[Rfam]
chrB-b RNA: a 47-nucleotide RNA from Novosphingobium sp. ST904. By type it is a cis-regulatory element. NCBI's taxonomy places the organism under Bacteria, Pseudomonadati, Alphaproteobacteria, Sphingomonadales, Novosphingobium. A search with the family's covariance model found it, with a score of 43 bits.

RNA sequence: GCGGGAUCAAGCAACCUCCCGACCAGGCGUCACCGCCCAAGCGUUGC
Numbered sequence: 001g002c003g004g005g006a007u008c009a010a011g012c013a014a015c016c017u018c019c020c021g022a023c024c025a026g027g028c029g030u031c032a033c034c035g036c037c038c039a040a041g042c043g044u045u046g047c
Stems, first nucleotide, its partner, number of pairs: 002021005011047005026037004